[Rfam]
Rfam assigns this 116-nucleotide sequence from Faecalicoccus pleomorphus to the family "FMN riboswitch aptamer (RFN element)". It scores 100 bits against the family's covariance model. Lineage of the source: Bacteria > Bacillota > Erysipelotrichia > Erysipelotrichales > Faecalicoccus.
RNA sequence: AAAAAACUUCAGGGUCGGGUGAAAUUCCCAAUCGGCGGUACACUCCGCGAGCCUUCGGGCACGAACCGGUGCAAUUCCGGUAGCGACAGUUAAAGUCUGGAUGGAAGAAGAUUUUU
Number, nucleotide and partner (000 for none) at each position: 001a000002a000003a114004a113005a112006a000007c110008u109009u108010c107011a000012g000013g000014g000015u000016c000017g029018g028019g027020u000021g000022a000023a000024a000025u000026u000027c019028c018029c017030a000031a096032u095033c085034g084035g048036c047037g046038g045039u000040a000041c000042a000043c083044u082045c038046c037047g036048c035049g000050a000051g000052c000053c059054u000055u000056c000057g000058g000059g053060c000061a000062c000063g000064a000065a081066c080067c079068g078069g077070u000071g000072c000073a000074a000075u000076u000077c069078c068079g067080g066081u065082a044083g043084c034085g033086a000087c099088a098089g097090u000091u000092a000093a000094a000095g032096u031097c089098u088099g087100g000101a000102u000103g000104g000105a000106a000107g010108a009109a008110g007111a000112u005113u004114u003115u000116u000